[Rfam]
RNA sequence: GAAAUUCACUAGGGGUGCUUUACGGCUGAGAGAAGAAAAUGAUAUUUUCUUCGACCCUCUGAACCUGAUCUGGUUAGUACCAGCGAAGGGAAGUGAUGUUGUUUAACG
Numbered sequence: 001g002a003a004a005u006u007c008a009c010u011a012g013g014g015g016u017g018c019u020u021u022a023c024g025g026c027u028g029a030g031a032g033a034a035g036a037a038a039a040u041g042a043u044a045u046u047u048u049c050u051u052c053g054a055c056c057c058u059c060u061g062a063a064c065c066u067g068a069u070c071u072g073g074u075u076a077g078u079a080c081c082a083g084c085g086a087a088g089g090g091a092a093g094u095g096a097u098g099u100u101g102u103u104u105a106a107c108g
Stems, first nucleotide, its partner, number of pairs: 006096005011058004017026003033051008064089003070083004

Shown here is a 108-nucleotide RNA sequence from Bacillus aerolatus, a member of the family "TPP riboswitch aptamer (THI element)". Gene Ontology term of the family: thiamine pyrophosphate binding. Lineage of the source: Bacteria > Bacillati > Caryophanales > Bacillaceae > Bacillus.